[Rfam]
RNA sequence: ACCUUUUAGCUCCCAUUUCCACUGUAUCUGAACACUGGUCUUGGUGGUCACAAAAGGAGGAAAAAUAAUGCUGAAGCUAAUCUCACAGCCUUGUAAUCUGGUAAUAUACUGUGCAGGCUACUUUCAAACAGGA
Numbered sequence: 001a002c003c004u005u006u007u008a009g010c011u012c013c014c015a016u017u018u019c020c021a022c023u024g025u026a027u028c029u030g031a032a033c034a035c036u037g038g039u040c041u042u043g044g045u046g047g048u049c050a051c052a053a054a055a056g057g058a059g060g061a062a063a064a065a066u067a068a069u070g071c072u073g074a075a076g077c078u079a080a081u082c083u084c085a086c087a088g089c090c091u092u093g094u095a096a097u098c099u100g101g102u103a104a105u106a107u108a109c110u111g112u113g114c115a116g117g118c119u120a121c122u123u124u125c126a127a128a129c130a131g132g133a
Base pairs, nucleotide, nucleotide: 003060004059005058006057007056019047020046021045022044023043026039027038028037078120079119081117082116083115092111093109094108
Dot-bracket structure: ..(((((...........(((((..(((........)))...)))))........))))).................((.(((........(((.............)).)...))).)).............
The family of this 133-nucleotide RNA from Fukomys damarensis is "Small nucleolar RNA SNORA61". Pairs were carried over by alignment from the consensus structure, which was predicted with PFOLD. Taxonomically the source falls in Fukomys (Eukaryota, Euteleostomi, Eutheria, Glires). By type it is an H/ACA-box small nucleolar RNA. From the family's description: ACA61 is a member of the H/ACA class of snoRNA that guide the sites of modification of uridines to pseudouridines.